[Rfam]
RNA: PreQ1 (pre queuosine) riboswitch aptamer
Organism: Holtiella tumoricola
RNA sequence: CUAGGACUGGUUCGAGAACCUCCCAGUAUAAAAAACUAAGGUAAA
Number, nucleotide and partner (000 for none) at each position: 001c000002u000003a000004g000005g000006a027007c026008u025009g024010g023011u000012u000013c000014g000015a000016g037017a000018a000019c000020c000021u000022c000023c010024c009025a008026g007027u006028a000029u000030a000031a000032a000033a000034a000035a000036c000037u016038a000039a000040g000041g000042u000043a000044a000045a000